RNA sequence: UCGCGUCAAGCGCCGUAGGCAGGAGCGGGGGACCCAAGGUAAGCGCCUUCCCCGGUCACCAAGACCGGAGAUGGCUUGGGGUUAAGCCGCGCGCAAGUCGCGCGGCCGGGCAACUCACUCGGCCCGAACCCGACAGCUCACCUCGCAGGCGUCGGUGAGGGGAUCU
Numbered sequence: 001u002c003g004c005g006u007c008a009a010g011c012g013c014c015g016u017a018g019g020c021a022g023g024a025g026c027g028g029g030g031g032a033c034c035c036a037a038g039g040u041a042a043g044c045g046c047c048u049u050c051c052c053c054g055g056u057c058a059c060c061a062a063g064a065c066c067g068g069a070g071a072u073g074g075c076u077u078g079g080g081g082u083u084a085a086g087c088c089g090c091g092c093g094c095a096a097g098u099c100g101c102g103c104g105g106c107c108g109g110g111c112a113a114c115u116c117a118c119u120c121g122g123c124c125c126g127a128a129c130c131c132g133a134c135a136g137c138u139c140a141c142c143u144c145g146c147a148g149g150c151g152u153c154g155g156u157g158a159g160g161g162g163a164u165c166u
Stems, first nucleotide, its partner, number of pairs: 011151004025146006035078004079131003087105004108125004
Dot-bracket structure: ..........((((..........((((((....((((....................................))))(((.....((((...........))))..((((..........))))...))).........)))))).))))...............
c-di-AMP riboswitch aptamer (ydaO/yuaA leader): a 166-nucleotide RNA sequence from Streptomyces sporangiiformans. Lineage of the source: Bacteria > Bacillati > Actinomycetota > Actinomycetes > Streptomyces. About the family: This family represents a conserved RNA structure found upstream of the ydaO and yuaA genes in Bacillus subtilis and related genes in other bacteria.